[Rfam]
RNA sequence: CCCAUGGGGUCAGCUUGCGAACACCCCGUGAGGCGGCAGCCCAAGUUUCGCAUGUAUCGGAAAUGACCGAGGAAACAUGCUAUG
Numbered sequence: 001c002c003c004a005u006g007g008g009g010u011c012a013g014c015u016u017g018c019g020a021a022c023a024c025c026c027c028g029u030g031a032g033g034c035g036g037c038a039g040c041c042c043a044a045g046u047u048u049c050g051c052a053u054g055u056a057u058c059g060g061a062a063a064u065g066a067c068c069g070a071g072g073a074a075a076c077a078u079g080c081u082a083u084g
Base pairs, nucleotide, nucleotide: 005028006027007026008025009024010023050080051079052078053077054076055075